RNA sequence: CCUUAGAUUGGCGGCUCUAACGACAUCGUGGCGGUCUAAGGUAGUAGCGUUACCAGAAGGGUAAGAGGCUGAAAUAGCGCAAUACAGGUGGCGAAGAUAGUGCCUGUGCCUCGCAAGACUGUCGGGU
Numbered sequence: 001c002c003u004u005a006g007a008u009u010g011g012c013g014g015c016u017c018u019a020a021c022g023a024c025a026u027c028g029u030g031g032c033g034g035u036c037u038a039a040g041g042u043a044g045u046a047g048c049g050u051u052a053c054c055a056g057a058a059g060g061g062u063a064a065g066a067g068g069c070u071g072a073a074a075u076a077g078c079g080c081a082a083u084a085c086a087g088g089u090g091g092c093g094a095a096g097a098u099a100g101u102g103c104c105u106g107u108g109c110c111u112c113g114c115a116a117g118a119c120u121g122u123c124g125g126g127u
Stems, first nucleotide, its partner, number of pairs: 001041010029055003047080006066111004084107006096123006
RNA: Betaproteobacteria-1 RNA